[Rfam]
RNA sequence: GAAUGAAAUGAUGAACAGAAUUUUCCCUAUUGGUUUGAUUGCCGUGAUGAUGGCAAACUUAACGUAUUAGCUCUAUCUGAUCAUUC
Numbered sequence: 001g002a003a004u005g006a007a008a009u010g011a012u013g014a015a016c017a018g019a020a021u022u023u024u025c026c027c028u029a030u031u032g033g034u035u036u037g038a039u040u041g042c043c044g045u046g047a048u049g050a051u052g053g054c055a056a057a058c059u060u061a062a063c064g065u066a067u068u069a070g071c072u073c074u075a076u077c078u079g080a081u082c083a084u085u086c
Stems, first nucleotide, its partner, number of pairs: 002085004037058001040055004